[Rfam]
RNA: Small nucleolar RNA R38
RNA sequence: UGACAUCAAUGAUGAACUAUAGUUAUCCCUGUCAUAAAAUUAUGUUGAGAAGCACGUCAGCCUGAGAUGUCU
Numbered sequence: 001u002g003a004c005a006u007c008a009a010u011g012a013u014g015a016a017c018u019a020u021a022g023u024u025a026u027c028c029c030u031g032u033c034a035u036a037a038a039a040u041u042a043u044g045u046u047g048a049g050a051a052g053c054a055c056g057u058c059a060g061c062c063u064g065a066g067a068u069g070u071c072u
Base pairs, nucleotide, nucleotide: 002071003070004069005068006067007066